[Rfam]
RNA sequence: AUGAGAAAAAGGCAAACUUCCUGAAAAGGUAGGACGCAAAGCUUAGGGUCUAAGGUCGCAUUGACUAUGAUUGCCUAGCUGCCAAC
Numbered sequence: 001a002u003g004a005g006a007a008a009a010a011g012g013c014a015a016a017c018u019u020c021c022u023g024a025a026a027a028g029g030u031a032g033g034a035c036g037c038a039a040a041g042c043u044u045a046g047g048g049u050c051u052a053a054g055g056u057c058g059c060a061u062u063g064a065c066u067a068u069g070a071u072u073g074c075c076u077a078g079c080u081g082c083c084a085a086c
Stems, first nucleotide, its partner, number of pairs: 012037002017032002020029003040080004045076003048071003055065004
Rfam assigns this 86-nucleotide RNA sequence from Aquibacillus koreensis to the family "c-di-GMP-I riboswitch aptamer". The literature on the family includes a 2007 paper in Nucleic Acids Res by Weinberg et al., "Identification of 22 candidate structured RNAs in bacteria using the CMfinder comparative genomics pipeline". Pairs were carried over by alignment from the consensus structure, which is taken from published work.